Shown here is an 88-nucleotide RNA from Gossypium australe, a member of the family "Small nucleolar RNA Z102/R77". Rfam links the family to the GO terms nucleolus and RNA processing. The literature on the family includes a 2003 paper in Nucleic Acids Res by Chen et al., "The high diversity of snoRNAs in plants: identification and comparative study of 120 snoRNA genes from Oryza sativa". The match comes from Rfam's covariance-model search (76 bits).
[Rfam]
RNA sequence: GAAAGAAAUGAUGACUGUGAUAUUGUUUCCCUAUUGGUUUGAUAGCCAUGAUGAUGGCAUCUUUAGUGUUAGCUCUAUCUGAUCAUUC
Numbered sequence: 001g002a003a004a005g006a007a008a009u010g011a012u013g014a015c016u017g018u019g020a021u022a023u024u025g026u027u028u029c030c031c032u033a034u035u036g037g038u039u040u041g042a043u044a045g046c047c048a049u050g051a052u053g054a055u056g057g058c059a060u061c062u063u064u065a066g067u068g069u070u071a072g073c074u075c076u077a078u079c080u081g082a083u084c085a086u087u088c
Base pairs, nucleotide, nucleotide: 002087003086005084041061045058046057047056

By type it is a C/D-box small nucleolar RNA.